A member of the RNA family "Nitrogen stress-induced RNA 1" from Brunnivagina elsteri, 61 nucleotides long.
The family has 17 seed sequences and 962 matches in Rfam 15.1.
A reference for the family is Ionescu et al. (2010), "Heterocyst-specific transcription of NsiR1, a non-coding RNA encoded in a tandem array of direct repeats in cyanobacteria", J Mol Biol.
By type it is a small RNA.

RNA sequence: UGGUAGAUGCACCCUGAUUCAAAUUUAUACCCCAGUAGAUUUUCUAUUGGGGUUUUUUAUU
Number, nucleotide and partner (000 for none) at each position: 001u000002g013003g012004u011005a000006g000007a000008u000009g000010c000011a004012c003013c002014c000015u000016g000017a000018u000019u000020c000021a000022a000023a000024u000025u000026u000027a000028u000029a053030c052031c051032c050033c049034a048035g047036u046037a045038g044039a043040u000041u000042u000043u039044c038045u037046a036047u035048u034049g033050g032051g031052g030053u029054u000055u000056u000057u000058u000059a000060u000061u000